Small nucleolar RNA F1/F2/snoR5a: a 151-nucleotide sequence from Elaeis guineensis. This family contains F1, F2 and snoR5a sequences, all of which are members of the the H/ACA class of snoRNA that guide the sites of modification of uridines to pseudouridines. The family has 8 seed sequences and 325 matches in Rfam 15.1. The family's consensus secondary structure was predicted with PFOLD. The match comes from Rfam's covariance-model search (68 bits).

Nucleotides: 151
Stems, first nucleotide, its partner, number of pairs: 004062006019048005025042004031037001078144005093123002096120002100116003
Number, partner (000 for none) and nucleotide at each position: 001000u002000a003000a004062u005061g006060c007059c008058a009057u010000u011000a012000g013000g014000u015000a016000u017000c018000u019048g020047a021046u022045g023044c024000u025042c026041a027040g028039u029000g030000u031037g032000g033000u034000u035000u036000a037031u038000g039028g040027c041026u042025g043000u044023g045022c046021g047020u048019c049000u050000c051000g052000u053000u054000a055000g056000a057009a058008u059007g060006g061005c062004a063000g064000a065000u066000a067000a068000g069000g070000a071000g072000g073000a074000g075000a076000g077000g078144a079143g080142c081141a082140g083000g084000u085000c086000u087000u088000g089000c090000g091000a092000c093123g094122c095000u096120g097119g098000u099000u100116g101115c102114u103000c104000u105000u106000c107000u108000u109000c110000c111000a112000u113000g114102a115101g116100c117000u118000u119097c120096c121000u122094g123093u124000u125000a126000c127000u128000u129000u130000u131000a132000c133000c134000c135000u136000u137000a138000c139000c140082c141081u142080g143079c144078u145000c146000a147000c148000a149000u150000u151000u